The record is a 73-nucleotide RNA from Jannaschia aquimarina, which matches "Singlet oxygen resistance RNA X" in Rfam. Pairs were carried over by alignment from the consensus structure. Rfam links the family to the GO term response to photooxidative stress. The family has 8 seed sequences and 528 matches in Rfam 15.1. NCBI's taxonomy places the organism under Bacteria, Alphaproteobacteria, Rhodobacterales, Roseobacteraceae, Jannaschia. A reference for the family is Berghoff et al. (2009), "Photooxidative stress-induced and abundant small RNAs in Rhodobacter sphaeroides", Mol Microbiol. From the family's description: SorX (RSs2461)like SorY is a singlet oxygen induced sRNA that counteracts oxidative stress by targeting mRNA for a transporter in Rhodobacter. It also has an impact on resistance against organic hydroperoxides. It targets SD sequence of potA mRNA via an aSD sequence. The aSD sequence and some neighbouring nucleotides are identical to the one of SorY (targets takP mRNA). Rfam classes the family as a small RNA.
[Rfam]
RNA sequence: ACCCGCUGCGGUCGCGGGCAAUCGACCGCACCUCCCUGUUGGACUCGGCCGGACCUCGCGUCCGGCCUUUUUU
Numbered sequence: 001a002c003c004c005g006c007u008g009c010g011g012u013c014g015c016g017g018g019c020a021a022u023c024g025a026c027c028g029c030a031c032c033u034c035c036c037u038g039u040u041g042g043a044c045u046c047g048g049c050c051g052g053a054c055c056u057c058g059c060g061u062c063c064g065g066c067c068u069u070u071u072u073u
Base pairs, nucleotide, nucleotide: 008029009028010027011026012025013024014023047067048066049065050064051063052062053061054060
Dot-bracket structure: .......(((((((........))))))).................((((((((.....))))))))......